[Rfam]
RNA sequence: ACUUUCCUUGUCAUGGGGUGGUUCGGGAGACUCAAUGAACGUGUAGUGAGAGCUUCCCUGCUGACACCAUAUCAACACAUGCGCACCACCUGAGCUUCGUGCUCGGGCCACGGUGCAAUUUUUGGAAAC
Numbered sequence: 001a002c003u004u005u006c007c008u009u010g011u012c013a014u015g016g017g018g019u020g021g022u023u024c025g026g027g028a029g030a031c032u033c034a035a036u037g038a039a040c041g042u043g044u045a046g047u048g049a050g051a052g053c054u055u056c057c058c059u060g061c062u063g064a065c066a067c068c069a070u071a072u073c074a075a076c077a078c079a080u081g082c083g084c085a086c087c088a089c090c091u092g093a094g095c096u097u098c099g100u101g102c103u104c105g106g107g108c109c110a111c112g113g114u115g116c117a118a119u120u121u122u123u124g125g126a127a128a129c
Base pairs, nucleotide, nucleotide: 006018007017008016009015021061022060026056027055028054029053031052032051033050039047040046083116084115085114086113087112089107090106091105092104093103094102

The record is a 129-nucleotide RNA from Parambassis ranga, which matches "U4atac minor spliceosomal RNA" in Rfam. Rfam describes the family as follows. U4atac is an essential component of the minor U12-type spliceosome complex which is required for removal of the rarer class of eukaryotic introns (AT-AC, U12-type).